Shown here is an 89-nucleotide RNA sequence from Carpinus fangiana, a member of the family "mir-156 microRNA precursor family". The family has 10 seed sequences and 1,401 matches in Rfam 15.1. NCBI's taxonomy places the organism under Eukaryota, Streptophytina, Pentapetalae, fabids, Carpinus. From the family's description: This family represents the plant microRNA (miRNA) precursor mir-156. A reference for the family is Reinhart et al. (2002), "MicroRNAs in plants", Genes Dev. Gene Ontology terms of the family: RISC complex and miRNA-mediated post-transcriptional gene silencing.
[Rfam]
RNA sequence: GUGACAGAAGAGAGUGAGCACUCAAGGUGUUUUUUCUUGCGUGGACUCUCAACGCUUGAAGCUCUGCGUGCUCACUCUAUAUCUGUCGC
Numbered sequence: 001g002u003g004a005c006a007g008a009a010g011a012g013a014g015u016g017a018g019c020a021c022u023c024a025a026g027g028u029g030u031u032u033u034u035u036c037u038u039g040c041g042u043g044g045a046c047u048c049u050c051a052a053c054g055c056u057u058g059a060a061g062c063u064c065u066g067c068g069u070g071c072u073c074a075c076u077c078u079a080u081a082u083c084u085g086u087c088g089c
Base pairs, nucleotide, nucleotide: 001089002088003087004086005085006084007083008082011078012077013076014075015074016073017072018071019070020069021068023066024065
Dot-bracket structure: ((((((((..(((((((((((.((........................................)).)))))))))))...))))))))